[Rfam]
RNA sequence: UCGGAUAGUCUGCUCCUUAGCUGAUUUACCUAAUCCUUUUGAGGUACGGUAUCCGGCCGAUCGGUAUAGCUGAAAACGGCUAUAUCUCCCUUUUGGAAAGGAGCAAUAUUUCAAGCAGC
Numbered sequence: 001u002c003g004g005a006u007a008g009u010c011u012g013c014u015c016c017u018u019a020g021c022u023g024a025u026u027u028a029c030c031u032a033a034u035c036c037u038u039u040u041g042a043g044g045u046a047c048g049g050u051a052u053c054c055g056g057c058c059g060a061u062c063g064g065u066a067u068a069g070c071u072g073a074a075a076a077c078g079g080c081u082a083u084a085u086c087u088c089c090c091u092u093u094u095g096g097a098a099a100g101g102a103g104c105a106a107u108a109u110u111u112c113a114a115g116c117a118g119c
Base pairs, nucleotide, nucleotide: 004112011105012104013103014102015101016100020057021056022055023054026051028050029049030048035044036043037042063086064085065084066083067082068081069080070079071078072077088096089095
Dot-bracket structure: ...(......((((((...((((..(.(((....(((....)))...))))..)))).....((((((((((....)))))))))).((.....))...))))))......).......
The record is a 119-nucleotide sequence from Sporomusa silvacetica, which matches "Molybdenum/Tungsten riboswitch aptamer (Moco RNA motif)" in Rfam. The match comes from Rfam's covariance-model search (52 bits). Lineage of the source: Bacteria > Bacillati > Sporomusaceae > Sporomusa > Sporomusa silvacetica. Rfam links the family to the GO terms molybdenum ion binding, tungstate binding and regulation of gene expression.